The family of this 70-nucleotide RNA sequence from Ooceraea biroi is "mir-2 microRNA precursor family". On this family, see Lee and Ambros, Science 2001: "An extensive class of small RNAs in Caenorhabditis elegans". Taxonomically the source falls in Ooceraea (Eukaryota, Metazoa, Altocrustacea, Insecta). The family has 56 seed sequences and 918 matches in Rfam 15.1.
[Rfam]
RNA sequence: UUGCUCACAAAGUGGUUGUAAUAUGCUGAUCUAAUUGCGCUCAUAUCACAGCCAGCUUUGAUGAGCGUUG
Numbered sequence: 001u002u003g004c005u006c007a008c009a010a011a012g013u014g015g016u017u018g019u020a021a022u023a024u025g026c027u028g029a030u031c032u033a034a035u036u037g038c039g040c041u042c043a044u045a046u047c048a049c050a051g052c053c054a055g056c057u058u059u060g061a062u063g064a065g066c067g068u069u070g
Base pairs, nucleotide, nucleotide: 005064006063007062008060009059010058011057012056013054014053015052016051017050018049019048021046024045025044